A member of the RNA family "U5 spliceosomal RNA" from Microcebus murinus, 114 nucleotides long.
It scores 84 bits against the family's covariance model.
The family's RNA type in Rfam is spliceosomal small nuclear RNA.
Lineage of the source: Eukaryota > Vertebrata > Eutheria > Boreoeutheria > Microcebus.
On this family, see Hinz et al., J Biol Chem 1996: "Domain analysis of human U5 RNA. Cap trimethylation, protein binding, and spliceosome assembly".
About the family: U5 RNA is a component of both types of known spliceosome.
Pairs were carried over by alignment from the consensus structure, which is taken from published work.
RNA sequence: AUACUCUGGUUUCUCUUCAGAUCGUAUAAAUAUUUUGCCUUUUACUAAAGAUUCUGUGAAGAGGAACAACUCUGAGCCUUAAACCAAUUUUUUGAGGCCUUCUUUGGGAAGUCU
Numbered sequence: 001a002u003a004c005u006c007u008g009g010u011u012u013c014u015c016u017u018c019a020g021a022u023c024g025u026a027u028a029a030a031u032a033u034u035u036u037g038c039c040u041u042u043u044a045c046u047a048a049a050g051a052u053u054c055u056g057u058g059a060a061g062a063g064g065a066a067c068a069a070c071u072c073u074g075a076g077c078c079u080u081a082a083a084c085c086a087a088u089u090u091u092u093u094g095a096g097g098c099c100u101u102c103u104u105u106g107g108g109a110a111g112u113c114u
Base pairs, nucleotide, nucleotide: 004076005075006074009067010066011065012064013063014062015061016060017059018058019057028053030052031051033049034048035047095114097113099111100110101109102108